The family of this 83-nucleotide RNA from Elaeis guineensis is "MIR2275 microRNA precursor family".
Lineage of the source: Eukaryota > Streptophyta > Streptophytina > Cocoseae > Elaeis.
RNA sequence: GUUCUGAAUGCGAGAAUUGGAGGACAUCAAACCACUUGCGGUGAAAAUCGGUUUGGUUUCCUCCAAUAUCUCGCUUUCAACUG
Numbered sequence: 001g002u003u004c005u006g007a008a009u010g011c012g013a014g015a016a017u018u019g020g021a022g023g024a025c026a027u028c029a030a031a032c033c034a035c036u037u038g039c040g041g042u043g044a045a046a047a048u049c050g051g052u053u054u055g056g057u058u059u060c061c062u063c064c065a066a067u068a069u070c071u072c073g074c075u076u077u078c079a080a081c082u083g
Stems, first nucleotide, its partner, number of pairs: 005079004011073004016067006023060002026057005032051002